The record is a 75-nucleotide RNA sequence from Streptomyces benahoarensis, which matches "ASpks TB sRNA" in Rfam. Rfam 15.1 lists 9,052 matches to the family in 683 species. It scores 60 bits against the family's covariance model. Lineage of the source: Bacteria > Actinomycetota > Actinomycetes > Kitasatosporales > Streptomyces.

RNA sequence: CUUCAGGGUCCCCAGCCACAGGGGCUGCCCCGCCGGGCGCUCGGCACCGUAGGUGUCCAUCAGCGCCUGCACCUC
Numbered sequence: 001c002u003u004c005a006g007g008g009u010c011c012c013c014a015g016c017c018a019c020a021g022g023g024g025c026u027g028c029c030c031c032g033c034c035g036g037g038c039g040c041u042c043g044g045c046a047c048c049g050u051a052g053g054u055g056u057c058c059a060u061c062a063g064c065g066c067c068u069g070c071a072c073c074u075c
Base pairs, nucleotide, nucleotide: 014026015025016024017023032070033069038065039064043060048055049054